The record is a 79-nucleotide sequence from Amborella trichopoda, which matches "Small nucleolar RNA R16" in Rfam. The base pairs follow the family's consensus structure, which was predicted with PFOLD. Lineage of the source: Eukaryota > Viridiplantae > Spermatophyta > Amborellaceae > Amborella. Rfam 15.1 lists 884 matches to the family in 222 species. A search with the family's covariance model found it, with a score of 72 bits. The family's RNA type in Rfam is C/D-box small nucleolar RNA.

RNA sequence: CAUGGCAAAUGAUGAAAGUCUUAUCCUACACACUGAACAAUGAUGUGGAUUAAUACUCUGCUUAUUGUCUGAUGCCAUU
Numbered sequence: 001c002a003u004g005g006c007a008a009a010u011g012a013u014g015a016a017a018g019u020c021u022u023a024u025c026c027u028a029c030a031c032a033c034u035g036a037a038c039a040a041u042g043a044u045g046u047g048g049a050u051u052a053a054u055a056c057u058c059u060g061c062u063u064a065u066u067g068u069c070u071g072a073u074g075c076c077a078u079u
Base pairs, nucleotide, nucleotide: 003077004076005075006074007073